The record is a 151-nucleotide RNA sequence from Chionoecetes opilio, which matches "U12 minor spliceosomal RNA" in Rfam. It is annotated as a spliceosomal small nuclear RNA. Pairs were carried over by alignment from the consensus structure. The family is grouped with related families in Rfam's "U2 clan". Lineage of the source: Eukaryota > Eumetazoa > Ecdysozoa > Brachyura > Chionoecetes.
RNA sequence: GUGCCUUAAACUAAUGAGUAAGGAAAAUAACGAGCGUUGGUGACGCUUCGCUCUGCUAACAGCGUUUAGUAGAAUUAUUUGGAAGGGUAAAGGUUGUCCCGCGAACUCCCACCUACUUUGUGGUGAGUUCCAGGAGUAAGCAAUCUGCCCU
Numbered sequence: 001g002u003g004c005c006u007u008a009a010a011c012u013a014a015u016g017a018g019u020a021a022g023g024a025a026a027a028u029a030a031c032g033a034g035c036g037u038u039g040g041u042g043a044c045g046c047u048u049c050g051c052u053c054u055g056c057u058a059a060c061a062g063c064g065u066u067u068a069g070u071a072g073a074a075u076u077a078u079u080u081g082g083a084a085g086g087g088u089a090a091a092g093g094u095u096g097u098c099c100c101g102c103g104a105a106c107u108c109c110c111a112c113c114u115a116c117u118u119u120g121u122g123g124u125g126a127g128u129u130c131c132a133g134g135a136g137u138a139a140g141c142a143a144u145c146u147g148c149c150c151u
Stems, first nucleotide, its partner, number of pairs: 004023005032053005039046001054071005084151005091146007099134002103130004109123004